[Rfam]
RNA sequence: CAUGACUCGGUCGACCCCCCUGACCGAGUCCGCGCGGUCCCCGUCCUCCCACCCGGCGGGGACCGCGCCCU
Numbered sequence: 001c002a003u004g005a006c007u008c009g010g011u012c013g014a015c016c017c018c019c020c021u022g023a024c025c026g027a028g029u030c031c032g033c034g035c036g037g038u039c040c041c042c043g044u045c046c047u048c049c050c051a052c053c054c055g056g057c058g059g060g061g062a063c064c065g066c067g068c069c070c071u
Stems, first nucleotide, its partner, number of pairs: 004030009033067013
Source information: The record is a 71-nucleotide sequence from Phytoactinopolyspora mesophila, which matches "6C RNA" in Rfam. The match comes from Rfam's covariance-model search (51 bits). The family's consensus secondary structure is taken from published work. Taxonomically the source falls in Phytoactinopolyspora (Bacteria, Bacillati, Actinomycetota, Jiangellales).